[Rfam]
RNA sequence: UGUCUCAUGGUGUAAUGGUAGCACUACAGUUUUUGGUUCUGUCUGUCGAGGUUCGAAUCCUCGUGAGACAA
Numbered sequence: 001u002g003u004c005u006c007a008u009g010g011u012g013u014a015a016u017g018g019u020a021g022c023a024c025u026a027c028a029g030u031u032u033u034u035g036g037u038u039c040u041g042u043c044u045g046u047c048g049a050g051g052u053u054c055g056a057a058u059c060c061u062c063g064u065g066a067g068a069c070a071a
Stems, first nucleotide, its partner, number of pairs: 001070007010024004026042004047063005
Dot-bracket structure: (((((((..((((.......)))).((((.........))))....(((((.......)))))))))))).